[Rfam]
RNA sequence: ACCGUGUACUUACCUACUAUAUAGAAGCAGGGAUACAUGUAUUUUGCCUACUAUAUAGCAGGUAAGUACGCGGUUU
Numbered sequence: 001a002c003c004g005u006g007u008a009c010u011u012a013c014c015u016a017c018u019a020u021a022u023a024g025a026a027g028c029a030g031g032g033a034u035a036c037a038u039g040u041a042u043u044u045u046g047c048c049u050a051c052u053a054u055a056u057a058g059c060a061g062g063u064a065a066g067u068a069c070g071c072g073g074u075u076u
Stems, first nucleotide, its partner, number of pairs: 001074015017058008026049002030045002033042003
RNA: mir-7563 microRNA precursor family
Organism: Ameiurus melas